[Rfam]
RNA sequence: CGGGCGGCCCGGGCCCCUCUGACGACGGAACCCCCUCGUGAUGUCGGACCGCACCU
Dot-bracket structure: .....((.((((.........((((.((....)).))))....)))).))......
Numbered sequence: 001c002g003g004g005c006g007g008c009c010c011g012g013g014c015c016c017c018u019c020u021g022a023c024g025a026c027g028g029a030a031c032c033c034c035c036u037c038g039u040g041a042u043g044u045c046g047g048a049c050c051g052c053a054c055c056u
Stems, first nucleotide, its partner, number of pairs: 006050002009047004022039004027034002
The record is a 56-nucleotide RNA from Roseicyclus persicicus, which matches "terC RNA" in Rfam.